[Rfam]
RNA sequence: UAAAAGGGUUGAUUCUCAAUGCGAGACGUAGGAUCAUGAUAGCAUAAAAAGCGGUGAUCCUAUGCUGAAUGGUGAUCAAGACAUUUGGACAACAUAAUUUAUUGGGGUGUUGGAAGGAUGUCUACUUGAGUUCUGUCCUUCCAG
Numbered sequence: 001u002a003a004a005a006g007g008g009u010u011g012a013u014u015c016u017c018a019a020u021g022c023g024a025g026a027c028g029u030a031g032g033a034u035c036a037u038g039a040u041a042g043c044a045u046a047a048a049a050a051g052c053g054g055u056g057a058u059c060c061u062a063u064g065c066u067g068a069a070u071g072g073u074g075a076u077c078a079a080g081a082c083a084u085u086u087g088g089a090c091a092a093c094a095u096a097a098u099u100u101a102u103u104g105g106g107g108u109g110u111u112g113g114a115a116g117g118a119u120g121u122c123u124a125c126u127u128g129a130g131u132u133c134u135g136u137c138c139u140u141c142c143a144g
Stems, first nucleotide, its partner, number of pairs: 008093004014026004027064011065088007112141003116138005124131002
This 144-nucleotide RNA sequence from Heterostelium album belongs to the Rfam family "U11 spliceosomal RNA". It scores 63 bits against the family's covariance model. Taxonomically the source falls in Heterostelium album (Eukaryota, Amoebozoa, Eumycetozoa, Acytosteliaceae).